[Rfam]
RNA sequence: AAAUGUUCUCGGGGCGGGGUGCAAUUCCCCACCGGCGGUAUCGGGGUAACCCGGAGCCCGCGAGCGCCUUGUCCCUCAAGCGGCAAGGGUCAGCAGAUCCGGUGAGAUGCCGGAGCCGACGGUUACAGUCCGGAUAAAAGAGAACAGCC
Numbered sequence: 001a002a003a004u005g006u007u008c009u010c011g012g013g014g015c016g017g018g019g020u021g022c023a024a025u026u027c028c029c030c031a032c033c034g035g036c037g038g039u040a041u042c043g044g045g046g047u048a049a050c051c052c053g054g055a056g057c058c059c060g061c062g063a064g065c066g067c068c069u070u071g072u073c074c075c076u077c078a079a080g081c082g083g084c085a086a087g088g089g090u091c092a093g094c095a096g097a098u099c100c101g102g103u104g105a106g107a108u109g110c111c112g113g114a115g116c117c118g119a120c121g122g123u124u125a126c127a128g129u130c131c132g133g134a135u136a137a138a139a140g141a142g143a144a145c146a147g148c149c
Base pairs, nucleotide, nucleotide: 004146005145006144007143008142009141010140017029018028019027031129032128033118034117035061036060037059038058056116057115064094065093098114099113100112101111102110120132121131122130
Source information: FMN riboswitch aptamer (RFN element): a 149-nucleotide RNA sequence from Roseibium suaedae. It scores 114 bits against the family's covariance model.